[Rfam]
RNA sequence: UGUGUGUGGUGGAAUGGCAGUGUAUUGUUAACUGGUUGAAUAUUUGAAUGACACCAGCUGACAUUCUGCUGCCAGCCUACGGCACAUA
Numbered sequence: 001u002g003u004g005u006g007u008g009g010u011g012g013a014a015u016g017g018c019a020g021u022g023u024a025u026u027g028u029u030a031a032c033u034g035g036u037u038g039a040a041u042a043u044u045u046g047a048a049u050g051a052c053a054c055c056a057g058c059u060g061a062c063a064u065u066c067u068g069c070u071g072c073c074a075g076c077c078u079a080c081g082g083c084a085c086a087u088a
Stems, first nucleotide, its partner, number of pairs: 001088007009080004015074007022066001024064001027062004032057005041050003
This 88-nucleotide RNA sequence from Phrynocephalus forsythii belongs to the Rfam family "mir-449 microRNA precursor family".
The base pairs follow the family's consensus structure, which was predicted with RNAalifold.
Its Rfam clan is "mir-34 clan".